[Rfam]
RNA sequence: UCACUCUAUGCGCUUAAGAUAAGCACUCAAGAAAAAGCGGAUUUUACCACUUGUGUGGGCUUUUUUUGAGCUGCUUAUUUUUGCGCAUGAGAACAUUGAUCGCGGUCCGGACGGUAUUUUUUGCUGUACCUUCUUUUGCUGUGUUCUGAAGCGUAAUUUAUGCAGACCCAAGCCCGCAUAUGGACUUGAGUCUGCUUUUUUUAU
Numbered sequence: 001u002c003a004c005u006c007u008a009u010g011c012g013c014u015u016a017a018g019a020u021a022a023g024c025a026c027u028c029a030a031g032a033a034a035a036a037g038c039g040g041a042u043u044u045u046a047c048c049a050c051u052u053g054u055g056u057g058g059g060c061u062u063u064u065u066u067u068g069a070g071c072u073g074c075u076u077a078u079u080u081u082u083g084c085g086c087a088u089g090a091g092a093a094c095a096u097u098g099a100u101c102g103c104g105g106u107c108c109g110g111a112c113g114g115u116a117u118u119u120u121u122u123g124c125u126g127u128a129c130c131u132u133c134u135u136u137u138g139c140u141g142u143g144u145u146c147u148g149a150a151g152c153g154u155a156a157u158u159u160a161u162g163c164a165g166a167c168c169c170a171a172g173c174c175c176g177c178a179u180a181u182g183g184a185c186u187u188g189a190g191u192c193u194g195c196u197u198u199u200u201u202u203a204u
Base pairs, nucleotide, nucleotide: 004091005090006089008088009087010086011085012084013083017080018079019078020077021076022075023074024073025072026070027069028068029067030066031065032064033063034062035061037060038059044058045057046056047055094143095142096141099140101138102137109133110132111131113130114129115128116127160197162195163194164193165192167190170187171186172185174183175182176181
Background: The record is a 204-nucleotide RNA from Paenibacillus hemerocallicola, which matches "Enterococcus sRNA 1300" in Rfam. The base pairs follow the family's consensus structure, which was predicted with RNAfold. It scores 60 bits against the family's covariance model. Rfam's curators write: Expressed in mid and late exponential phases of growth. Expression remained uniform under daptomycin exposure. Rfam 15.1 lists 115 matches to the family in 105 species. The organism belongs to Paenibacillus, within Bacteria.